The family of this 88-nucleotide RNA from Phtheirospermum japonicum is "Small nucleolar RNA Z159/U59". NCBI's taxonomy places the organism under Eukaryota, Tracheophyta, Spermatophyta, Mesangiospermae, Phtheirospermum. A reference for the family is Chen et al. (2003), "The high diversity of snoRNAs in plants: identification and comparative study of 120 snoRNA genes from Oryza sativa", Nucleic Acids Res. The family is grouped with related families in Rfam's "SNORD59 clan". Gene Ontology terms of the family: RNA processing and nucleolus.

RNA sequence: GCCUCUGAGGAUGAUUUCAAAUAAUAACUUUCGUUCUUUUGAGAUUGAUUCCAUGCGGAAGAUUUAUAGGGACCUGAACUGAAGAGGC
Number, nucleotide and partner (000 for none) at each position: 001g000002c000003c086004u085005c084006u083007g000008a000009g000010g000011a000012u000013g000014a000015u000016u000017u000018c000019a000020a000021a000022u000023a000024a000025u000026a000027a000028c000029u000030u000031u000032c000033g000034u000035u000036c000037u000038u000039u000040u000041g000042a000043g000044a000045u000046u000047g000048a000049u000050u000051c000052c000053a000054u000055g000056c000057g000058g000059a000060a000061g000062a000063u000064u000065u000066a000067u000068a000069g000070g000071g000072a000073c000074c000075u000076g000077a000078a000079c000080u000081g000082a000083a006084g005085a004086g003087g000088c000